[Rfam]
RNA sequence: CAAGAUUCUCGGGGUAAGGUGAAAUUCCUGACCGGCGGUGAAGCUUCGCACGCGAAGCGCAGCCCGCGACUCCCGGUUGUCCGCUUGGCGGACGAACGGGACUGAUCUGGUGGAAAUCCAGGGCCGACGGUAAAGUCCGGAUGGGAGAGGAUCAUG
Numbered sequence: 001c002a003a004g005a006u007u008c009u010c011g012g013g014g015u016a017a018g019g020u021g022a023a024a025u026u027c028c029u030g031a032c033c034g035g036c037g038g039u040g041a042a043g044c045u046u047c048g049c050a051c052g053c054g055a056a057g058c059g060c061a062g063c064c065c066g067c068g069a070c071u072c073c074c075g076g077u078u079g080u081c082c083g084c085u086u087g088g089c090g091g092a093c094g095a096a097c098g099g100g101a102c103u104g105a106u107c108u109g110g111u112g113g114a115a116a117u118c119c120a121g122g123g124c125c126g127a128c129g130g131u132a133a134a135g136u137c138c139g140g141a142u143g144g145g146a147g148a149g150g151a152u153c154a155u156g
Stems, first nucleotide, its partner, number of pairs: 004153007017029003031136002033126002035067004062124002071101005106122005128139003